Shown here is a 599-nucleotide part of an RNA from Vanilla planifolia, a member of the family "Eukaryotic large subunit ribosomal RNA". The base pairs follow the family's consensus structure, which is taken from published work. Taxonomically the source falls in Vanilla (Eukaryota, Viridiplantae, Streptophyta, Liliopsida). A search with the family's covariance model found it, with a score of 2156 bits.

[Rfam]
RNA sequence: CGGGGAAAGAAGACCCUGUUGAGCUUGACUCUAGUCCGACUUUGUGAAAUGACUUGAGAGGUGUAGCAUAAGUGGAGUCGGGCGUCUUGCACGGAAUUGAAAUACCCUUACUUUUAGCGUUAUUUUACUUAUUAGGUGAGAGGCGGAAGGGCCCGACCCCUCCUUUUUGGUUCGAAGUCUACGCCUCGGCGAUCCAAGGUGAAGACAUUGUCAGGUGGGGAGUUUGGCUGGGGCAGCACAUCUGUUAAAAGAUAAUGCAGGUGUCCUAAGAUGAGCUCAACGAGAACAGAAAUCUCGUGUGGAACAAAAGGGUAAAAGCUCGUUUGAUUCUGAUUUCCAGUACGAAUACGAACCGUGAAAGCGUGGCCUAUCGAUCCUUUAGGCUUUCAGAAUUUGAAGCUAGAGGUGUCAGAAAAGUUACCACAGGGAUAACUGGCAUGUGGCAGCCAAGCGUUCAUAGCGACGCUGCUUUUUGAUCCUUUUAUGUCGGCUCUUCCUAUCAUUGUGAAGGAGAAUUCACCAAGUGUUGGAUUGUUCACCCACCAAUUGGGAACGUGAGCUGGGUGUAGACCGUCGUGAGACAGGUUAGUUUUACCCUA
Numbered sequence: 001c002g003g004g005g006a007a008a009g010a011a012g013a014c015c016c017u018g019u020u021g022a023g024c025u026u027g028a029c030u031c032u033a034g035u036c037c038g039a040c041u042u043u044g045u046g047a048a049a050u051g052a053c054u055u056g057a058g059a060g061g062u063g064u065a066g067c068a069u070a071a072g073u074g075g076a077g078u079c080g081g082g083c084g085u086c087u088u089g090c091a092c093g094g095a096a097u098u099g100a101a102a103u104a105c106c107c108u109u110a111c112u113u114u115u116a117g118c119g120u121u122a123u124u125u126u127a128c129u130u131a132u133u134a135g136g137u138g139a140g141a142g143g144c145g146g147a148a149g150g151g152c153c154c155g156a157c158c159c160c161u162c163c164u165u166u167u168u169g170g171u172u173c174g175a176a177g178u179c180u181a182c183g184c185c186u187c188g189g190c191g192a193u194c195c196a197a198g199g200u201g202a203a204g205a206c207a208u209u210g211u212c213a214g215g216u217g218g219g220g221a222g223u224u225u226g227g228c229u230g231g232g233g234c235a236g237c238a239c240a241u242c243u244g245u246u247a248a249a250a251g252a253u254a255a256u257g258c259a260g261g262u263g264u265c266c267u268a269a270g271a272u273g274a275g276c277u278c279a280a281c282g283a284g285a286a287c288a289g290a291a292a293u294c295u296c297g298u299g300u301g302g303a304a305c306a307a308a309a310g311g312g313u314a315a316a317a318g319c320u321c322g323u324u325u326g327a328u329u330c331u332g333a334u335u336u337c338c339a340g341u342a343c344g345a346a347u348a349c350g351a352a353c354c355g356u357g358a359a360a361g362c363g364u365g366g367c368c369u370a371u372c373g374a375u376c377c378u379u380u381a382g383g384c385u386u387u388c389a390g391a392a393u394u395u396g397a398a399g400c401u402a403g404a405g406g407u408g409u410c411a412g413a414a415a416a417g418u419u420a421c422c423a424c425a426g427g428g429a430u431a432a433c434u435g436g437c438a439u440g441u442g443g444c445a446g447c448c449a450a451g452c453g454u455u456c457a458u459a460g461c462g463a464c465g466c467u468g469c470u471u472u473u474u475g476a477u478c479c480u481u482u483u484a485u486g487u488c489g490g491c492u493c494u495u496c497c498u499a500u501c502a503u504u505g506u507g508a509a510g511g512a513g514a515a516u517u518c519a520c521c522a523a524g525u526g527u528u529g530g531a532u533u534g535u536u537c538a539c540c541c542a543c544c545a546a547u548u549g550g551g552a553a554c555g556u557g558a559g560c561u562g563g564g565u566g567u568a569g570a571c572c573g574u575c576g577u578g579a580g581a582c583a584g585g586u587u588a589g590u591u592u593u594a595c596c597c598u599a
Base pairs, nucleotide, nucleotide: 003598004597005596007593008592015427016426017425018424020423021422022419023418024417025416026415028223029222030221031220035215036214038212039211040210044128045127046126047125048124049123050122051121052120053119054117055116056115057114058113059112060111071109072108074106075105077092078091132203133202135200142195143194149159150158151157177190178189179188181186226239227237228236229235240262241261242260243259244258245257265366266365271323272322273321274320275319276318277303278302280298281297282296283295284294285293304313305312328352329351330350333347334346335345336344354363355362356361377405378404379403380402381401382400385399386398387397388396436477440474442470443469444468445467446466447465451461452460488563489561490560491559492558493555494552495551496550497549501526502525505520506519507518508517509516528542529541530540532538569587570586571585572584573582574581575580